[Rfam]
RNA sequence: GAAAGGGCAUGAUACCGAACAUGCCUGGGACAUGGAGAUGUGUCCCCUAUUAAA
Numbered sequence: 001g002a003a004a005g006g007g008c009a010u011g012a013u014a015c016c017g018a019a020c021a022u023g024c025c026u027g028g029g030a031c032a033u034g035g036a037g038a039u040g041u042g043u044c045c046c047c048u049a050u051u052a053a054a
Base pairs, nucleotide, nucleotide: 005026006025007024008023009022010021011020027046028045029044030043031042032041033040
RNA: S4-Clostridia ribosomal protein leader
Organism: Dorea sp. AGR2135